Glycine riboswitch aptamer: an 86-nucleotide RNA sequence.

[Rfam]
RNA sequence: CCGGCGUAUGCGGGAGAACCGGUCACACCGGUGCCGAAGGAGCAACCGCCCCGGAAACUCUCAGGCCCAAGGGACCGCAACGCAGA
Numbered sequence: 001c002c003g004g005c006g007u008a009u010g011c012g013g014g015a016g017a018a019c020c021g022g023u024c025a026c027a028c029c030g031g032u033g034c035c036g037a038a039g040g041a042g043c044a045a046c047c048g049c050c051c052c053g054g055a056a057a058c059u060c061u062c063a064g065g066c067c068c069a070a071g072g073g074a075c076c077g078c079a080a081c082g083c084a085g086a
Base pairs, nucleotide, nucleotide: 009079010078011077012076013075019031020030021029022028033066034065035064036062037061040060041059042058046054047053
The pairing is the family consensus, mapped onto this sequence. This family represents the bacterial glycine riboswitch. A search with the family's covariance model found it, with a score of 50 bits.